[Rfam]
RNA sequence: GAUAUGAUAGUAUGGUAGAAAGAUUCAGAUAUUUCUUUCUACCAUACUAUUUAGUAUUGUAAAUUAUGGAACUACACCA
Numbered sequence: 001g002a003u004a005u006g007a008u009a010g011u012a013u014g015g016u017a018g019a020a021a022g023a024u025u026c027a028g029a030u031a032u033u034u035c036u037u038u039c040u041a042c043c044a045u046a047c048u049a050u051u052u053a054g055u056a057u058u059g060u061a062a063a064u065u066a067u068g069g070a071a072c073u074a075c076a077c078c079a
Stems, first nucleotide, its partner, number of pairs: 006051018